[Rfam]
RNA sequence: UUGCAUUCUUAUAAACCCCCCGACUGCUGGCUUUAGCUUUUGGGACAAGCAAGAAUGCUAGAUCAACAUCUAGAAUAAUCCAAAGUUGAGGGUCUGUGUUGAGUGACCUUUAACUAUUUCACCUCUAGGACAUUU
Numbered sequence: 001u002u003g004c005a006u007u008c009u010u011a012u013a014a015a016c017c018c019c020c021c022g023a024c025u026g027c028u029g030g031c032u033u034u035a036g037c038u039u040u041u042g043g044g045a046c047a048a049g050c051a052a053g054a055a056u057g058c059u060a061g062a063u064c065a066a067c068a069u070c071u072a073g074a075a076u077a078a079u080c081c082a083a084a085g086u087u088g089a090g091g092g093u094c095u096g097u098g099u100u101g102a103g104u105g106a107c108c109u110u111u112a113a114c115u116a117u118u119u120c121a122c123c124u125c126u127a128g129g130a131c132a133u134u135u
Stems, first nucleotide, its partner, number of pairs: 003058004010049001012048001019044005026037002062135001069129006084115007092107002

Rfam assigns this 135-nucleotide RNA from Astyanax mexicanus to the family "Small nucleolar RNA SNORA14". ACA14 is a member of the H/ACA class of snoRNA that guide the sites of modification of uridines to pseudouridines. NCBI's taxonomy places the organism under Eukaryota, Chordata, Neopterygii, Acestrorhamphinae, Astyanax.